[Rfam]
RNA sequence: GUUGAGAACCCUUUGAAUUCAAUAAUGUAGUGACUCAAAAGGUUCUCACAAA
Numbered sequence: 001g002u003u004g005a006g007a008a009c010c011c012u013u014u015g016a017a018u019u020c021a022a023u024a025a026u027g028u029a030g031u032g033a034c035u036c037a038a039a040a041g042g043u044u045c046u047c048a049c050a051a052a
Stems, first nucleotide, its partner, number of pairs: 003048008012039005018033002021031001
Shown here is a 52-nucleotide RNA from Krameria lanceolata, a member of the family "Plastid-ccsA-ndhD-1 3UTR RNA". Rfam's curators put it in the seed alignment. The family is grouped with related families in Rfam's "Plastid-ccsA_ndhD 3UTR RNA clan". The literature on the family includes a 2023 paper in Plant Commun by Richter et al., "Retrograde signaling in plants: A critical review focusing on the GUN pathway and beyond". Plastid-ccsA-ndhD-1 is a non-coding RNA (ncRNA) recognised in plastids. It was found in the three prime untranslated region (3UTR) of ccsA and ndhD genes, its 3UTR location suggests a role in transcript maturation. Rfam classes the family as a cis-regulatory element.